Overview
This 54-nucleotide RNA from Coregonus sp. 'balchen' belongs to the Rfam family "UnaL2 LINE 3' element". NCBI's taxonomy places the organism under Eukaryota, Eumetazoa, Actinopterygii, Clupeocephala, Coregonus. The literature on the family includes a 2004 paper in RNA by Baba et al., "Solution structure of an RNA stem-loop derived from the 3' conserved region of eel LINE UnaL2". Pairs were carried over by alignment from the consensus structure, which is taken from published work.

RNA sequence: GAUAUGAAUAAAUGUAUGUCGCUUUGGAAAAAAGUGUCUGCUAAAUGGCAUACA
Dot-bracket structure: ............((((...((((((.....))))))..))).)...........